About this RNA:
S10-Clostridia ribosomal protein leader: a 97-nucleotide RNA from Planifilum fulgidum. The base pairs follow the family's consensus structure, which is taken from published work. The literature on the family includes a 2020 paper in BMC Microbiol by Eckert and Weinberg, "Discovery of 20 novel ribosomal leader candidates in bacteria and archaea". It scores 42 bits against the family's covariance model. NCBI's taxonomy places the organism under Bacteria, Bacillati, Bacillota, Caryophanales, Planifilum.

RNA sequence: GGACAGCGAUGAAGCGGAAGGUUGCCGACACACCCGGCCCCUUUGCCAUGGGUGGUCGGGAAAUUUUCGCGGAGAAGUCCAUUGUCAAAAUGGGCGA
Numbered sequence: 001g002g003a004c005a006g007c008g009a010u011g012a013a014g015c016g017g018a019a020g021g022u023u024g025c026c027g028a029c030a031c032a033c034c035c036g037g038c039c040c041c042u043u044u045g046c047c048a049u050g051g052g053u054g055g056u057c058g059g060g061a062a063a064u065u066u067u068c069g070c071g072g073a074g075a076a077g078u079c080c081a082u083u084g085u086c087a088a089a090a091u092g093g094g095c096g097a
Base pairs, nucleotide, nucleotide: 014070015069016068018067019066020065021064025059026058027057028056029055078097079096086093